[Rfam]
RNA sequence: UGGGCGGUAUCCUUGCGAGCUGCACCGGAAACUAUUUUUUACAACUUAAAAGGUUUCUGCCUAGAUCCGUAUAGCGGACCGGGACAGAGGG
Numbered sequence: 001u002g003g004g005c006g007g008u009a010u011c012c013u014u015g016c017g018a019g020c021u022g023c024a025c026c027g028g029a030a031a032c033u034a035u036u037u038u039u040u041a042c043a044a045c046u047u048a049a050a051a052g053g054u055u056u057c058u059g060c061c062u063a064g065a066u067c068c069g070u071a072u073a074g075c076g077g078a079c080c081g082g083g084a085c086a087g088a089g090g091g
Stems, first nucleotide, its partner, number of pairs: 001027003004023005010018002057087003060083003064079001066078003
Dot-bracket structure: ((((((((.((.....))))))).))).............................((((((.(.(((.......)))).))).)))....
RNA: pan motif
Organism: Bacillus sp. OK048